Bacterial RNase P class A: a 352-nucleotide sequence from Bowmanella sp. JS7-9. Pairs were carried over by alignment from the consensus structure, which is taken from published work. By type it is a ribozyme.
RNA sequence: GGAGUCGGCCGGGUAAUCGCUGCUUCAGCUUGCUGAAGGGGAGGAAAGUCCGGGCUCCAUAGGGCAGGGUGCCAGAUAACGUCUGGGCGGCGUGAGCCGACGACAAGUGCAGCAGAGAGUAGACCGCCUAAGCGCGCAAGCGCCGGUAAGGGUGAAAGGGUGCGGUAAGAGCGCACCGCGCAGCUGGUAACAGUUUGUGGCACGGUAAACUCCACCCGGAGCAAGACCAAAUAGGCUCCCAUUACGUACGGCCCGUACGGGGAGCGGGUAGGUUGCUUGAGCCAGCGAGUAAUUUCUGGCCUAGAUGAAUGAUUACCCUCGACAGAACCCGGCUUACAGGCCGACUCCGACC
Numbered sequence: 001g002g003a004g005u006c007g008g009c010c011g012g013g014u015a016a017u018c019g020c021u022g023c024u025u026c027a028g029c030u031u032g033c034u035g036a037a038g039g040g041g042a043g044g045a046a047a048g049u050c051c052g053g054g055c056u057c058c059a060u061a062g063g064g065c066a067g068g069g070u071g072c073c074a075g076a077u078a079a080c081g082u083c084u085g086g087g088c089g090g091c092g093u094g095a096g097c098c099g100a101c102g103a104c105a106a107g108u109g110c111a112g113c114a115g116a117g118a119g120u121a122g123a124c125c126g127c128c129u130a131a132g133c134g135c136g137c138a139a140g141c142g143c144c145g146g147u148a149a150g151g152g153u154g155a156a157a158g159g160g161u162g163c164g165g166u167a168a169g170a171g172c173g174c175a176c177c178g179c180g181c182a183g184c185u186g187g188u189a190a191c192a193g194u195u196u197g198u199g200g201c202a203c204g205g206u207a208a209a210c211u212c213c214a215c216c217c218g219g220a221g222c223a224a225g226a227c228c229a230a231a232u233a234g235g236c237u238c239c240c241a242u243u244a245c246g247u248a249c250g251g252c253c254c255g256u257a258c259g260g261g262g263a264g265c266g267g268g269u270a271g272g273u274u275g276c277u278u279g280a281g282c283c284a285g286c287g288a289g290u291a292a293u294u295u296c297u298g299g300c301c302u303a304g305a306u307g308a309a310u311g312a313u314u315a316c317c318c319u320c321g322a323c324a325g326a327a328c329c330c331g332g333c334u335u336a337c338a339g340g341c342c343g344a345c346u347c348c349g350a351c352c
Base pairs, nucleotide, nucleotide: 001348002347003346004345005344006343007342008341009340010339011337012317013316014315015314016313017312018311020041021040023038024037025036026035027034028033046335047334048333050332051331052330053329054328055221056220057219058218062254063253064252065251067217068216069215070214071213072086073085074084075083076082087101088099089098090097091096102212103211107210108209109206110205124151125150126147127146128145132143133142134141135140159177160176161175162174163173164172178201179199180198181197182196183195184193185192186191225274226273227272228271235265236264237263238262239261240260245259246258247257248256249255281300282299283298284297285296287294288293